[Rfam]
RNA sequence: CCGGCUCCGGUUCACCUUCGCCCGCAGGAACGACGCGGGAGGACCCGGAGCC
Numbered sequence: 001c002c003g004g005c006u007c008c009g010g011u012u013c014a015c016c017u018u019c020g021c022c023c024g025c026a027g028g029a030a031c032g033a034c035g036c037g038g039g040a041g042g043a044c045c046c047g048g049a050g051c052c
Stems, first nucleotide, its partner, number of pairs: 003052003007048004015042005021037001023035001

Shown here is a 52-nucleotide sequence from Prauserella sp. Am3, a member of the family "L31-Actinobacteria ribosomal protein leader". The family's RNA type in Rfam is cis-regulatory leader. Rfam's curators put it in the seed alignment. Lineage of the source: Bacteria > Bacillati > Actinomycetota > Pseudonocardiales > Prauserella.